[Rfam]
RNA sequence: GUAUUUAAUACUGUAUCCACUCGUAUAAUAUUGGAGAUAAGGUCCAAAAGUUUCUACCAAACUGCCGUAAAUAGUUUGACUACGAGAGGAAUAGGGUUUUUA
Numbered sequence: 001g002u003a004u005u006u007a008a009u010a011c012u013g014u015a016u017c018c019a020c021u022c023g024u025a026u027a028a029u030a031u032u033g034g035a036g037a038u039a040a041g042g043u044c045c046a047a048a049a050g051u052u053u054c055u056a057c058c059a060a061a062c063u064g065c066c067g068u069a070a071a072u073a074g075u076u077u078g079a080c081u082a083c084g085a086g087a088g089g090a091a092u093a094g095g096g097u098u099u100u101u102a
Base pairs, nucleotide, nucleotide: 018088020086021085022084023083024082025081029049031047032046033045034044035043058078059077060076061075062074063073064072

This 102-nucleotide RNA sequence from Bacillus sp. MUM 116 belongs to the Rfam family "Purine riboswitch aptamer".